c-di-GMP-I riboswitch aptamer: a 76-nucleotide RNA sequence from Dialister histaminiformans.
Rfam links the family to the GO term cyclic-di-GMP binding.

RNA sequence: UGUAUCUCAGGGCAAAAUUGUUGAAAAGCAAUGACGCAAAGCUACAGGGCCUUUAACAUGGCAGCCAGCUGCAAAU
Numbered sequence: 001u002g003u004a005u006c007u008c009a010g011g012g013c014a015a016a017a018u019u020g021u022u023g024a025a026a027a028g029c030a031a032u033g034a035c036g037c038a039a040a041g042c043u044a045c046a047g048g049g050c051c052u053u054u055a056a057c058a059u060g061g062c063a064g065c066c067a068g069c070u071g072c073a074a075a076u
Base pairs, nucleotide, nucleotide: 012037013036017032018031019030020029021028022027040070041069042068043067047066048065049062050061051060
Rfam describes the family as follows. GEMM was predicted in a large-scale screen for bacterial structured RNA regulatory elements. Genes associated with GEMM are involved in a diverse array of functions, including chemotaxis regulation, signal transduction, secretion and chitin.